[Rfam]
RNA sequence: UGAUCCAUUGCAUUUUUUUAAUCAAGGAAAUUACACUCGAGUGAGAUUGAGUACAAGGGGAUCUUCGCUCCUCUUCAUCUUUCUUGAGUCUAUUUUCUUGAUUAAAGAAAUUCGCUGGAUCA
Numbered sequence: 001u002g003a004u005c006c007a008u009u010g011c012a013u014u015u016u017u018u019u020a021a022u023c024a025a026g027g028a029a030a031u032u033a034c035a036c037u038c039g040a041g042u043g044a045g046a047u048u049g050a051g052u053a054c055a056a057g058g059g060g061a062u063c064u065u066c067g068c069u070c071c072u073c074u075u076c077a078u079c080u081u082u083c084u085u086g087a088g089u090c091u092a093u094u095u096u097c098u099u100g101a102u103u104a105a106a107g108a109a110a111u112u113c114g115c116u117g118g119a120u121c122a
Base pairs, nucleotide, nucleotide: 001122002121003120004119005118006117007116012111013110016107017106018105019104020103021102022101023100024099025098026097027096028095029094030093032092033091035089036088037087039085040084041083
A member of the RNA family "MIR1509 microRNA precursor family" from Medicago truncatula, 122 nucleotides long. The family has 8 seed sequences and 42 matches in Rfam 15.1. Its family is annotated with RISC complex and miRNA-mediated post-transcriptional gene silencing in the Gene Ontology. It scores 88 bits against the family's covariance model.